[Rfam]
RNA sequence: UUAUUAAACUAAAUAAAAACUCAUAUAAUAUUGGGAAUAUGGCCCAAAAGUUUCUACCCUAGAACCGUAAAUUAUAGGACUAUGAGUGAAAAAUGUUCGGAU
Numbered sequence: 001u002u003a004u005u006a007a008a009c010u011a012a013a014u015a016a017a018a019a020c021u022c023a024u025a026u027a028a029u030a031u032u033g034g035g036a037a038u039a040u041g042g043c044c045c046a047a048a049a050g051u052u053u054c055u056a057c058c059c060u061a062g063a064a065c066c067g068u069a070a071a072u073u074a075u076a077g078g079a080c081u082a083u084g085a086g087u088g089a090a091a092a093a094u095g096u097u098c099g100g101a102u
Base pairs, nucleotide, nucleotide: 019087020086021085022084023083024082025081029049031047032046033045034044035043058078059077060076061075063073064072
The family of this 102-nucleotide RNA sequence from Anaerosolibacter carboniphilus is "Purine riboswitch aptamer". A search with the family's covariance model found it, with a score of 89 bits. NCBI's taxonomy places the organism under Bacteria, Clostridia, Peptostreptococcales, Thermotaleaceae, Anaerosolibacter.